This 125-nucleotide RNA from Cronobacter sakazakii belongs to the Rfam family "Enterobacteria greA leader". Rfam classes the family as a cis-regulatory leader.
[Rfam]
RNA sequence: GUCAUACUAAGGCGCAUCGCCCUGCAAAGUAAACGAUGACCCUUCGGGAACUUCAGGGUAAAAUACGUAUCAAAUUGCAAAAUCGUUCCUGACCUGGGGCUUUGUCUCCGGGUCAGUUUUCUUUU
Numbered sequence: 001g002u003c004a005u006a007c008u009a010a011g012g013c014g015c016a017u018c019g020c021c022c023u024g025c026a027a028a029g030u031a032a033a034c035g036a037u038g039a040c041c042c043u044u045c046g047g048g049a050a051c052u053u054c055a056g057g058g059u060a061a062a063a064u065a066c067g068u069a070u071c072a073a074a075u076u077g078c079a080a081a082a083u084c085g086u087u088c089c090u091g092a093c094c095u096g097g098g099g100c101u102u103u104g105u106c107u108c109c110g111g112g113u114c115a116g117u118u119u120u121c122u123u124u125u
Base pairs, nucleotide, nucleotide: 001040002039003038004037005036011034014030015029041048042047057071058070059069060068089116090115091114092113093112094111095110096109097108098107
NCBI's taxonomy places the organism under Bacteria, Enterobacterales, Enterobacteriaceae, Cronobacter, Cronobacter sakazakii.